A member of the RNA family "Streptomyces sRNA 4677" from Streptomyces galilaeus, 249 nucleotides long. By type it is a small RNA. The pairing is the family consensus, mapped onto this sequence. A reference for the family is Hindra et al. (2014), "Complex intra-operonic dynamics mediated by a small RNA in Streptomyces coelicolor", PLoS One.

Nucleotides: 249
Base pairs, nucleotide, nucleotide: 007228008227009226010225016080017079018078019077093108094107095106096105097104098103123159124158125157126156127155185220186219187218188217189216191214192213193212195208196207197206198205231247232246233245234244235243
Number, partner (000 for none) and nucleotide at each position: 001000u002000g003000u004000u005000c006000c007228g008227g009226u010225g011000c012000c013000g014000u015000c016080g017079g018078c019077g020000g021000u022000c023000u024000u025000c026000u027000u028000c029000a030000a031000g032000g033000a034000c035000g036000u037000c038000u039000u040000c041000c042000a043000g044000a045000g046000g047000g048000a049000a050000a051000g052000a053000a054000a055000c056000c057000g058000a059000a060000c061000c062000a063000a064000g065000c066000c067000c068000c069000a070000c071000c072000c073000c074000u075000c076000c077019c078018g079017c080016c081000c082000a083000c084000g085000g086000a087000g088000c089000g090000g091000g092000u093108u094107c095106a096105c097104u098103c099000g100000c101000g102000g103098g104097a105096g106095u107094g108093a109000a110000c111000a112000u113000c114000g115000c116000c117000a118000a119000c120000u121000g122000g123159g124158c125157u126156g127155g128000u129000u130000u131000c132000c133000u134000g135000a136000c137000c138000g139000g140000u141000u142000g143000c144000c145000u146000g147000c148000c149000u150000u151000a152000c153000g154000c155127u156126c157125a158124g159123c160000a161000c162000g163000g164000c165000a166000c167000a168000a169000c170000c171000c172000c173000a174000c175000a176000c177000a178000c179000g180000c181000a182000a183000a184000c185220g186219g187218c188217c189216c190000u191214c192213g193212c194000c195208g196207g197206g198205a199000c200000g201000c202000c203000a204000a205198u206197c207196c208195c209000a210000g211000u212193g213192c214191g215000a216189g217188g218187g219186c220185c221000u222000g223000a224000c225010c226009a227008c228007c229000a230000a231247g232246g233245a234244a235243g236000u237000c238000g239000a240000c241000a242000c243235c244234u245233u246232c247231c248000c249000g

Rfam describes the family as follows. Located in the intergenic region between anti-sigma factor SCO4677 gene and a putative regulatory protein gene SCO4676. scr4677 expression requires the SCO4677 activity and scr4677 sRNA itself seem to affect the levels of the SCO4676-associated transcripts.